[Rfam]
RNA sequence: CCAGUUGACCGGGUGACCGCUGGCGGACGGGUAACUGUCCGUUGGAGGAAAGUCCGGGCUCCAUCGAAACACGGUGACGGCGAAAUGCCGCCGGGGGCGACCCCAGGGAAAGUGCCACAGAAAGCAAACCGCCGCUCUUCGGAGCGGCAAGGGUGAAAGGGUGCGGUAAGAGCGCACCGGGCGUCUGGCGACAGAGGCCGCACGGUAAACCCCACCGGGAGCAAGACCAAAUAGGGAUGACGCGGGGCUUGCCCCAGCCUGUUUCGAGGCCAUGUCGUCCGGGUUGGUUGCACGAGCGCGCUGGCAACAGCCGCCUCAGAUGAAUGGUCACCACGUCGCGGCAACGCGGCCCUACAGAACCCGGCUUACAGGUCAACUGGCGUU
Numbered sequence: 001c002c003a004g005u006u007g008a009c010c011g012g013g014u015g016a017c018c019g020c021u022g023g024c025g026g027a028c029g030g031g032u033a034a035c036u037g038u039c040c041g042u043u044g045g046a047g048g049a050a051a052g053u054c055c056g057g058g059c060u061c062c063a064u065c066g067a068a069a070c071a072c073g074g075u076g077a078c079g080g081c082g083a084a085a086u087g088c089c090g091c092c093g094g095g096g097g098c099g100a101c102c103c104c105a106g107g108g109a110a111a112g113u114g115c116c117a118c119a120g121a122a123a124g125c126a127a128a129c130c131g132c133c134g135c136u137c138u139u140c141g142g143a144g145c146g147g148c149a150a151g152g153g154u155g156a157a158a159g160g161g162u163g164c165g166g167u168a169a170g171a172g173c174g175c176a177c178c179g180g181g182c183g184u185c186u187g188g189c190g191a192c193a194g195a196g197g198c199c200g201c202a203c204g205g206u207a208a209a210c211c212c213c214a215c216c217g218g219g220a221g222c223a224a225g226a227c228c229a230a231a232u233a234g235g236g237a238u239g240a241c242g243c244g245g246g247g248c249u250u251g252c253c254c255c256a257g258c259c260u261g262u263u264u265c266g267a268g269g270c271c272a273u274g275u276c277g278u279c280c281g282g283g284u285u286g287g288u289u290g291c292a293c294g295a296g297c298g299c300g301c302u303g304g305c306a307a308c309a310g311c312c313g314c315c316u317c318a319g320a321u322g323a324a325u326g327g328u329c330a331c332c333a334c335g336u337c338g339c340g341g342c343a344a345c346g347c348g349g350c351c352c353u354a355c356a357g358a359a360c361c362c363g364g365c366u367u368a369c370a371g372g373u374c375a376a377c378u379g380g381c382g383u384u
Stems, first nucleotide, its partner, number of pairs: 001380010011369001012332007020045009050367003054364005059221004068264002072217005078090004092106001093104004107212002112210002114206003129152002131148007160178006179201001180199003184195004225289004235280006257270004296315001300311004